[Rfam]
RNA sequence: CUGCAUUCUUAACCCUCCUGGCAGCUUUGUUAGUUUCCAGGAUAAGAAUGAAUGCUAGAGAAAACUGUUGAUUUAUCCAAAAUGUUGAGCUCUUCUCCCAUGGCUCUUCAUUAUUUCACGUCUUCAACAUUA
Numbered sequence: 001c002u003g004c005a006u007u008c009u010u011a012a013c014c015c016u017c018c019u020g021g022c023a024g025c026u027u028u029g030u031u032a033g034u035u036u037c038c039a040g041g042a043u044a045a046g047a048a049u050g051a052a053u054g055c056u057a058g059a060g061a062a063a064a065c066u067g068u069u070g071a072u073u074u075a076u077c078c079a080a081a082a083u084g085u086u087g088a089g090c091u092c093u094u095c096u097c098c099c100a101u102g103g104c105u106c107u108u109c110a111u112u113a114u115u116u117c118a119c120g121u122c123u124u125c126a127a128c129a130u131u132a
Stems, first nucleotide, its partner, number of pairs: 003055004009046002016042006023035003060131002066126002070122002081112004087106001089104002
Record summary
A member of the RNA family "Small nucleolar RNA SNORA14" from Apteryx owenii, 132 nucleotides long. Its family is annotated with RNA processing and nucleolus in the Gene Ontology. The base pairs follow the family's consensus structure, which was predicted with RNAfold. The source organism's lineage runs through Eukaryota, Deuterostomia, Vertebrata, Palaeognathae and Apteryx.